About this RNA:
The record is a 290-nucleotide RNA sequence, which matches "permuted transfer-messenger RNA" in Rfam. Bacterial tmRNA, also known as 10Sa RNA or SsrA, is named for its dual tRNA and mRNA-like properties.
RNA sequence: GGCUCUGAACGUGAAGUGAAUGGUGUCAAGACGGGAGUUCGAUUCUCCCCGGCUCCACCAUGAGUGCUAUCUAGGAAAGCCUCAUAAGCAGACCUGACCUGAGCCGUCUAAUCAACGGGAAUAAGGGACGAUGAAGCGGCUGAUUACCGUGGAUUCACGAUAGCCCUGAUGAUGGGGCCGACCGGUUUCGAUUGGCAUACUGAAGCGGAACUUACUACUAGGCAAGCGGAGCCUUAAACCAAGCAAAACUUGUAGACGCCAACGACGACUACAUCCGUGUUGCUGCUUAA
Numbered sequence: 001g002g003c004u005c006u007g008a009a010c011g012u013g014a015a016g017u018g019a020a021u022g023g024u025g026u027c028a029a030g031a032c033g034g035g036a037g038u039u040c041g042a043u044u045c046u047c048c049c050c051g052g053c054u055c056c057a058c059c060a061u062g063a064g065u066g067c068u069a070u071c072u073a074g075g076a077a078a079g080c081c082u083c084a085u086a087a088g089c090a091g092a093c094c095u096g097a098c099c100u101g102a103g104c105c106g107u108c109u110a111a112u113c114a115a116c117g118g119g120a121a122u123a124a125g126g127g128a129c130g131a132u133g134a135a136g137c138g139g140c141u142g143a144u145u146a147c148c149g150u151g152g153a154u155u156c157a158c159g160a161u162a163g164c165c166c167u168g169a170u171g172a173u174g175g176g177g178c179c180g181a182c183c184g185g186u187u188u189c190g191a192u193u194g195g196c197a198u199a200c201u202g203a204a205g206c207g208g209a210a211c212u213u214a215c216u217a218c219u220a221g222g223c224a225a226g227c228g229g230a231g232c233c234u235u236a237a238a239c240c241a242a243g244c245a246a247a248a249c250u251u252g253u254a255g256a257c258g259c260c261a262a263c264g265a266c267g268a269c270u271a272c273a274u275c276c277g278u279g280u281u282g283c284u285g286c287u288u289a290a
Stems, first nucleotide, its partner, number of pairs: 001216002012208001023198003027194003033049005050180007220234004